A member of the RNA family "mir-6301 microRNA precursor family" from Brenthis ino, 78 nucleotides long. Rfam links the family to the GO terms RISC complex and miRNA-mediated post-transcriptional gene silencing. Pairs were carried over by alignment from the consensus structure, which was predicted with RNAalifold. A search with the family's covariance model found it, with a score of 86 bits. The organism belongs to Brenthis, within Eukaryota.
RNA sequence: CGUACGAGGUAGCGUCAAACGGGGAAUUGGUAUGUUCAAUAUUUUACCAGUUCAUCGUCUGACGUUUGACUUCCUAUG
Numbered sequence: 001c002g003u004a005c006g007a008g009g010u011a012g013c014g015u016c017a018a019a020c021g022g023g024g025a026a027u028u029g030g031u032a033u034g035u036u037c038a039a040u041a042u043u044u045u046a047c048c049a050g051u052u053c054a055u056c057g058u059c060u061g062a063c064g065u066u067u068g069a070c071u072u073c074c075u076a077u078g
Base pairs, nucleotide, nucleotide: 001078002077003076004075006073007072008071009070010069012065013064014063015062016061017060019058020057021056022055024053025052026051027050028049029048030047031046032045